[Rfam]
RNA: mir-2807 microRNA precursor family
RNA sequence: UUAGCUCAUAUUUGUAUGGAGUUGGAACGUUUGCAUGCGUUUACCGCUAGGGGCACUGUUCGAACUGCAUACAAAAUUGGCUUA
Numbered sequence: 001u002u003a004g005c006u007c008a009u010a011u012u013u014g015u016a017u018g019g020a021g022u023u024g025g026a027a028c029g030u031u032u033g034c035a036u037g038c039g040u041u042u043a044c045c046g047c048u049a050g051g052g053g054c055a056c057u058g059u060u061c062g063a064a065c066u067g068c069a070u071a072c073a074a075a076a077u078u079g080g081c082u083u084a
Base pairs, nucleotide, nucleotide: 008078011075012074013073014072015071016070018068020066021065022064023063025061026060027059028058029057034052036050039047040046